[Rfam]
RNA: MIR5298 microRNA precursor family
Organism: Medicago truncatula
RNA sequence: UUAGGUUUUCAUUUUCUUCUGGAAUUUUUCUGGAAUUCUCGUUGUUGAAGAUUGAUGGAGAUGAUAUGAAGAUUAAAAAGAGAAGAAG
Dot-bracket structure: .....((((..(..(((((..............((((.((......)).))))..............)))))..)..)))).......